Rfam assigns this 75-nucleotide RNA sequence from Haemonchus placei to the family "mir-5928 microRNA precursor family". Gene Ontology terms of the family: RISC complex and miRNA-mediated post-transcriptional gene silencing. The match comes from Rfam's covariance-model search (64 bits).

[Rfam]
RNA sequence: GGCACACAUUUGAAGUAGAGUAGAUCAGGAGGUUCAUCUGACCCUGCUAACCUACCAUACUUCGAGUUUGUGCCC
Numbered sequence: 001g002g003c004a005c006a007c008a009u010u011u012g013a014a015g016u017a018g019a020g021u022a023g024a025u026c027a028g029g030a031g032g033u034u035c036a037u038c039u040g041a042c043c044c045u046g047c048u049a050a051c052c053u054a055c056c057a058u059a060c061u062u063c064g065a066g067u068u069u070g071u072g073c074c075c
Stems, first nucleotide, its partner, number of pairs: 001074006008067002011064007020055004025050001027048002030045001032043001034041002